[Rfam]
The record is a 118-nucleotide RNA sequence from Salix dunnii, which matches "U5 spliceosomal RNA" in Rfam.
Rfam classes the family as a spliceosomal small nuclear RNA.
The family's consensus secondary structure is taken from published work.
RNA sequence: AGCCGCGCGGUGAGCACAGAGCGAACUAUUCUUUCGCCUUUUACUAAAGAAUACCGUGUGCUCGCCGCAUAUAGUGGCAUACGCCAAUUUUUUGAGGAGUCUGCUUUGACGAGUGGCU
Number, nucleotide and partner (000 for none) at each position: 001a000002g000003c077004c076005g075006c074007g000008c067009g066010g065011u064012g063013a062014g061015c060016a059017c058018a057019g000020a000021g000022c000023g000024a000025a000026c000027u053028a052029u051030u050031c049032u048033u047034u046035c000036g000037c000038c000039u000040u000041u000042u000043a000044c000045u000046a034047a033048a032049g031050a030051a029052u028053a027054c000055c000056g000057u018058g017059u016060g015061c014062u013063c012064g011065c010066c009067g008068c000069a000070u000071a000072u000073a000074g006075u005076g004077g003078c000079a000080u000081a000082c000083g000084c000085c000086a000087a000088u000089u000090u000091u000092u000093u000094g000095a000096g000097g000098a118099g117100u116101c115102u000103g000104c000105u000106u000107u000108g000109a000110c000111g000112a000113g000114u000115g101116g100117c099118u098